[Rfam]
RNA sequence: GGCUCGGGAGCAGACCUGUGGGAGGGUUUGCAGGAAUAGAGCCACACCCCAUUUCGCAAGCGGCCGGCGGCUGAGGCCCAACAGCCAGCCCG
Numbered sequence: 001g002g003c004u005c006g007g008g009a010g011c012a013g014a015c016c017u018g019u020g021g022g023a024g025g026g027u028u029u030g031c032a033g034g035a036a037u038a039g040a041g042c043c044a045c046a047c048c049c050c051a052u053u054u055c056g057c058a059a060g061c062g063g064c065c066g067g068c069g070g071c072u073g074a075g076g077c078c079c080a081a082c083a084g085c086c087a088g089c090c091c092g
Base pairs, nucleotide, nucleotide: 001043002042003041004040005039010031011030012029013028014027015026016025017024064092066090067089068088069086070085071084072083073082
Rhodo-rpoB RNA: a 92-nucleotide RNA sequence from Roseinatronobacter bogoriensis. It is annotated as a cis-regulatory element. The organism belongs to Roseinatronobacter bogoriensis, within Bacteria. The family's consensus secondary structure is taken from published work. The match comes from Rfam's covariance-model search (77 bits).